The family of this 103-nucleotide RNA sequence from Ensifer sp. M14 is "TPP riboswitch aptamer (THI element)". Rfam links the family to the GO term thiamine pyrophosphate binding. A search with the family's covariance model found it, with a score of 74 bits.
RNA sequence: CCUCAUUCCGAGGGGAGCACUAUUCUGUGCUGAGAUGGCGGUGAGCCGGACCCUUGAACCUGAUCCGGGUCAUGCCGGCGUAGGAACGGGAAAAGAGCCGCAU
Numbered sequence: 001c002c003u004c005a006u007u008c009c010g011a012g013g014g015g016a017g018c019a020c021u022a023u024u025c026u027g028u029g030c031u032g033a034g035a036u037g038g039c040g041g042u043g044a045g046c047c048g049g050a051c052c053c054u055u056g057a058a059c060c061u062g063a064u065c066c067g068g069g070u071c072a073u074g075c076c077g078g079c080g081u082a083g084g085a086a087c088g089g090g091a092a093a094a095g096a097g098c099c100g101c102a103u
Stems, first nucleotide, its partner, number of pairs: 006091005011054004017030004037047003059084004065078004